TPP riboswitch aptamer (THI element): a 116-nucleotide sequence from Kribbella solani.
Taxonomically the source falls in Kribbella (Bacteria, Bacillati, Actinomycetota, Kribbellaceae).

RNA sequence: ACAAACCUUUGCGGGAGCUCGCACCAGUAGCGCGGGCUGAGAGGGCGACAGCUGGGUCGCCGACCGCCUGAACCUGACCGGGUAAUGCCGGCGUAGGGAGUUGGGUCACUCAUGGC
Numbered sequence: 001a002c003a004a005a006c007c008u009u010u011g012c013g014g015g016a017g018c019u020c021g022c023a024c025c026a027g028u029a030g031c032g033c034g035g036g037c038u039g040a041g042a043g044g045g046c047g048a049c050a051g052c053u054g055g056g057u058c059g060c061c062g063a064c065c066g067c068c069u070g071a072a073c074c075u076g077a078c079c080g081g082g083u084a085a086u087g088c089c090g091g092c093g094u095a096g097g098g099a100g101u102u103g104g105g106u107c108a109c110u111c112a113u114g115g116c
Base pairs, nucleotide, nucleotide: 006104007103010100011067012066013065014064017037018036019035020034021033044061045060046059047058048057073097074096075095076094078091079090080089081088
It scores 64 bits against the family's covariance model.